A member of the RNA family "Small nucleolar RNA SNORA1" from Cavia porcellus, 132 nucleotides long. The match comes from Rfam's covariance-model search (103 bits). The source organism's lineage runs through Eukaryota, Craniata, Rodentia, Caviidae and Cavia. Pairs were carried over by alignment from the consensus structure, which was predicted with PFOLD. ACA1 is a member of the H/ACA class of snoRNA that guide the sites of modification of uridines to pseudouridines. Its family is annotated with nucleolus and RNA processing in the Gene Ontology.
[Rfam]
RNA sequence: AUCCUCAAUCUAGAUUAGAAUGGGCACUGUUGAUUGGUGUCCACAGUUGACCAAUGUGGCUAACAGUGAGACACAGGCAUGCUUCUAUCACAGUAAACAUUUACAGUGGUGACAGUAAGACCUGUAACAUUU
Numbered sequence: 001a002u003c004c005u006c007a008a009u010c011u012a013g014a015u016u017a018g019a020a021u022g023g024g025c026a027c028u029g030u031u032g033a034u035u036g037g038u039g040u041c042c043a044c045a046g047u048u049g050a051c052c053a054a055u056g057u058g059g060c061u062a063a064c065a066g067u068g069a070g071a072c073a074c075a076g077g078c079a080u081g082c083u084u085c086u087a088u089c090a091c092a093g094u095a096a097a098c099a100u101u102u103a104c105a106g107u108g109g110u111g112a113c114a115g116u117a118a119g120a121c122c123u124g125u126a127a128c129a130u131u132u
Stems, first nucleotide, its partner, number of pairs: 003059002006056002021043007073125005086111006